[Rfam]
Overview: This 435-nucleotide RNA from Fischerella thermalis belongs to the Rfam family "Bacterial RNase P class A". Pairs were carried over by alignment from the consensus structure, which is taken from published work. About the family: Ribonuclease P (RNase P) is a ubiquitous endoribonuclease, found in archaea, bacteria and eukarya as well as chloroplasts and mitochondria.
RNA sequence: GAGAGUAGGCGUAGGCGGUUGCAGACUAGCCAAUUUGUGCAUAGUUUGAGGAAAGUCCGGGCUCCCGAAAGACCAAACUUGCUGGGUAACGCCCAGUGCGAGCGAUCGCGAGGAUAGUGCCACAGAAAGAUACCGCCAAGAGUAGGUAAUGGGUAAAGGGUAAUGGGUAACGGGAAAAAACCAAUUACCAAUUACCUUUUCCCCAAUUACCAAUCUUUGGUAAGGGUGCAAAGGUGCGGUAAGAGCGCACCAGCAACAUCGAGAGGUGUUGGCUCGGUAAACCCCGGUUGGGAGCAAGGCGAAUGGAACUACGGUUGGUCUUUUACCAGUUCCGCGAUCAGAGCCGCUAGAGACGUCUGGUAACAGCCGUCCCAGAUAGAUAACCGCCCUCUUGAAUUAAGAGAACAGAACCCGGCUUACUACCGACUCUCUACU
Numbered sequence: 001g002a003g004a005g006u007a008g009g010c011g012u013a014g015g016c017g018g019u020u021g022c023a024g025a026c027u028a029g030c031c032a033a034u035u036u037g038u039g040c041a042u043a044g045u046u047u048g049a050g051g052a053a054a055g056u057c058c059g060g061g062c063u064c065c066c067g068a069a070a071g072a073c074c075a076a077a078c079u080u081g082c083u084g085g086g087u088a089a090c091g092c093c094c095a096g097u098g099c100g101a102g103c104g105a106u107c108g109c110g111a112g113g114a115u116a117g118u119g120c121c122a123c124a125g126a127a128a129g130a131u132a133c134c135g136c137c138a139a140g141a142g143u144a145g146g147u148a149a150u151g152g153g154u155a156a157a158g159g160g161u162a163a164u165g166g167g168u169a170a171c172g173g174g175a176a177a178a179a180a181c182c183a184a185u186u187a188c189c190a191a192u193u194a195c196c197u198u199u200u201c202c203c204c205a206a207u208u209a210c211c212a213a214u215c216u217u218u219g220g221u222a223a224g225g226g227u228g229c230a231a232a233g234g235u236g237c238g239g240u241a242a243g244a245g246c247g248c249a250c251c252a253g254c255a256a257c258a259u260c261g262a263g264a265g266g267u268g269u270u271g272g273c274u275c276g277g278u279a280a281a282c283c284c285c286g287g288u289u290g291g292g293a294g295c296a297a298g299g300c301g302a303a304u305g306g307a308a309c310u311a312c313g314g315u316u317g318g319u320c321u322u323u324u325a326c327c328a329g330u331u332c333c334g335c336g337a338u339c340a341g342a343g344c345c346g347c348u349a350g351a352g353a354c355g356u357c358u359g360g361u362a363a364c365a366g367c368c369g370u371c372c373c374a375g376a377u378a379g380a381u382a383a384c385c386g387c388c389c390u391c392u393u394g395a396a397u398u399a400a401g402a403g404a405a406c407a408g409a410a411c412c413c414g415g416c417u418u419a420c421u422a423c424c425g426a427c428u429c430u431c432u433a434c435u
Base pairs, nucleotide, nucleotide: 001431002430003429004428005427006426008424009423011420014388015387016386017385018384019383020382022048023047024046025045026044027043028042053418054417055416057415058414059413060412061411062294063293064292065291071322072321076289077288078287080286081285082096083095084094085093086092097111098109099108100107101106112284113283117282118281119278120277121276133225134224135221136220137219138218139217140216142214143213233251234250235249236248237247238246253273254271255270256269257268258267259266260265298345299344300343305333306332307331308330309329310328313327314326315325317323352371353370354369355368357366358365359364